[Rfam]
RNA sequence: UCUUCAUUUCACACACUCUCUCGCCGCUCGACCGGUCGAGAGAGUGUGUGAAAUGAAGAGA
Numbered sequence: 001u002c003u004u005c006a007u008u009u010c011a012c013a014c015a016c017u018c019u020c021u022c023g024c025c026g027c028u029c030g031a032c033c034g035g036u037c038g039a040g041a042g043a044g045u046g047u048g049u050g051a052a053a054u055g056a057a058g059a060g061a
Base pairs, nucleotide, nucleotide: 001059002058003057004056005055006054007053010050012048013047014046015045016044017043019041020040021039022038

Background:
Shown here is a 61-nucleotide RNA sequence from Pristionchus pacificus, a member of the family "mir-8364 microRNA precursor family". The match comes from Rfam's covariance-model search (74 bits). The family's consensus secondary structure was predicted with RNAalifold.